7SK RNA: a 283-nucleotide RNA from Leptobrachium leishanense.
For this family Rfam cites "Transcription: surprising role for an elusive small nuclear RNA" (Blencowe, Curr Biol, 2002).
Its Rfam clan is "7SK clan".
[Rfam]
RNA sequence: GGAUGUGAGGGUAAUAUGGGUGUGACAUCUAUCACUCCAUUGAUCGCUGGUGUUAGGCUGAUCUGGCCAGUUAGGCAGGUGCCCCUUACCUCCCAUGCACACAUGCCCCCUCCACCCAUCUGAAGCCCUGCGCUCAGCUGAAGAGGAUGCAUAGGGCCCCCUAUCAGUAGCCCAACUUACCUGAUAGAUCCUUCAAGAACCAAAAUGUAGGAAUAGAACCAGAGGGUAGUCAAGCAUAUACACAUCCACAUAGGCACUGCGUGUAGCAGUGUGCCAUAGCUUU
Numbered sequence: 001g002g003a004u005g006u007g008a009g010g011g012u013a014a015u016a017u018g019g020g021u022g023u024g025a026c027a028u029c030u031a032u033c034a035c036u037c038c039a040u041u042g043a044u045c046g047c048u049g050g051u052g053u054u055a056g057g058c059u060g061a062u063c064u065g066g067c068c069a070g071u072u073a074g075g076c077a078g079g080u081g082c083c084c085c086u087u088a089c090c091u092c093c094c095a096u097g098c099a100c101a102c103a104u105g106c107c108c109c110c111u112c113c114a115c116c117c118a119u120c121u122g123a124a125g126c127c128c129u130g131c132g133c134u135c136a137g138c139u140g141a142a143g144a145g146g147a148u149g150c151a152u153a154g155g156g157c158c159c160c161c162u163a164u165c166a167g168u169a170g171c172c173c174a175a176c177u178u179a180c181c182u183g184a185u186a187g188a189u190c191c192u193u194c195a196a197g198a199a200c201c202a203a204a205a206u207g208u209a210g211g212a213a214u215a216g217a218a219c220c221a222g223a224g225g226g227u228a229g230u231c232a233a234g235c236a237u238a239u240a241c242a243c244a245u246c247c248a249c250a251u252a253g254g255c256a257c258u259g260c261g262u263g264u265a266g267c268a269g270u271g272u273g274c275c276a277u278a279g280c281u282u283u
Stems, first nucleotide, its partner, number of pairs: 001107002003104001005100003009094003018086002024083001026081005032075002035070002037066003042063004046058003115156002120137004125133002138154003145150001170235002176229002180225003192218003197214001200211002248283001250281001252277001253275003256270005